The record is a 97-nucleotide RNA sequence from Gordonia lasianthus, which matches "Plastid-rps12 3UTR RNA" in Rfam.
[Rfam]
RNA sequence: GGUUUCCAUUGGUGCAAAUCCAAUCAUCUCAAUUUAAGAUGAGAAACAAUUCCCCAUUGGUAUCAAAUGUUAUCUAUUAAGCGGGGAAAAUCCUAUU
Numbered sequence: 001g002g003u004u005u006c007c008a009u010u011g012g013u014g015c016a017a018a019u020c021c022a023a024u025c026a027u028c029u030c031a032a033u034u035u036a037a038g039a040u041g042a043g044a045a046a047c048a049a050u051u052c053c054c055c056a057u058u059g060g061u062a063u064c065a066a067a068u069g070u071u072a073u074c075u076a077u078u079a080a081g082c083g084g085g086g087a088a089a090a091u092c093c094u095a096u097u
Stems, first nucleotide, its partner, number of pairs: 009023004052086004056077002059074004
Dot-bracket structure: ........((((.......))))............................((((((.((((........)))).)).....))))...........

The sequence is in the family's curated seed alignment. By type it is a cis-regulatory element. Rfam describes the family as follows. Plastid rpl20 is a non-coding RNA (ncRNA) recognised in plastids. It was found in the three prime untranslated region (3UTR) of rps12 gene, its 3UTR location sugest a role in transcript maduration. Rfam 15.1 lists 1,710 matches to the family in 1,426 species.